[Rfam]
Rfam assigns this 117-nucleotide sequence from Candidatus Xianfuyuplasma coldseepsis to the family "FMN riboswitch aptamer (RFN element)". Rfam 15.1 lists 6,230 matches to the family in 5,120 species. It scores 114 bits against the family's covariance model. Pairs were carried over by alignment from the consensus structure, which is taken from published work. Lineage of the source: Bacteria > Bacillati > Mycoplasmatota > Candidatus Izemoplasmataceae > Candidatus Xianfuyuplasma.

RNA sequence: AUUAAUCUUCAGGGCAGGGUGAAAUUCCCGACCGGCGGUAUAGUCCGCGAGCGUGAGAACGCAUGAAUUGGUGCAAUUCCAAUACCGAUAGUAUAGUCUAGAUGAAAGAAGAUGAUU
Numbered sequence: 001a002u003u004a005a006u007c008u009u010c011a012g013g014g015c016a017g018g019g020u021g022a023a024a025u026u027c028c029c030g031a032c033c034g035g036c037g038g039u040a041u042a043g044u045c046c047g048c049g050a051g052c053g054u055g056a057g058a059a060c061g062c063a064u065g066a067a068u069u070g071g072u073g074c075a076a077u078u079c080c081a082a083u084a085c086c087g088a089u090a091g092u093a094u095a096g097u098c099u100a101g102a103u104g105a106a107a108g109a110a111g112a113u114g115a116u117u
Stems, first nucleotide, its partner, number of pairs: 003115001005113006017029003031097002033087002035048004043085002067083005089100003